Mammalian CPEB3 ribozyme: a 77-nucleotide RNA sequence from Crocodylus porosus. Its family is annotated with RNA nuclease activity in the Gene Ontology. Lineage of the source: Eukaryota > Craniata > Vertebrata > Sauria > Crocodylus. It scores 35 bits against the family's covariance model. Pairs were carried over by alignment from the consensus structure, which is taken from published work.
RNA sequence: CGUGGCAAGUUCCAGGCUGCAGCAGAAGUGCUCAUGGCAUGGCCUUGUCAGAGUCCAGCACAACUGCAAAUUCUGCU
Numbered sequence: 001c002g003u004g005g006c007a008a009g010u011u012c013c014a015g016g017c018u019g020c021a022g023c024a025g026a027a028g029u030g031c032u033c034a035u036g037g038c039a040u041g042g043c044c045u046u047g048u049c050a051g052a053g054u055c056c057a058g059c060a061c062a063a064c065u066g067c068a069a070a071u072u073c074u075g076c077u
Stems, first nucleotide, its partner, number of pairs: 014045005021077007028040003049066003